Nucleotides: 073
Base pairs, nucleotide, nucleotide: 001071002070003069004068005067009060010059011058012057013056022055023054024053030048031047032046034045035044
Number, partner (000 for none) and nucleotide at each position: 001071a002070c003069u004068g005067u006000g007000g008000a009060g010059u011058g012057u013056a014000c015000a016000a017000g018000a019000a020000c021000u022055u023054g024053u025000g026000a027000g028000u029000a030048g031047u032046a033000u034045g035044u036000c037000a038000c039000u040000u041000g042000u043000g044035a045034c046032u047031a048030c049000a050000a051000a052000a053024g054023c055022a056013u057012a058011c059010a060009c061000a062000a063000u064000g065000a066000a067005g068004c069003a070002g071001u072000a073000a
The family of this 73-nucleotide RNA is "RAGATH-18 RNA". The sequence is in the family's curated seed alignment. Actinobacteria, Firmicutes, Fusobacteria, Thermotogae (1 example). It is annotated as a small RNA. Pairs were carried over by alignment from the consensus structure, which is taken from published work.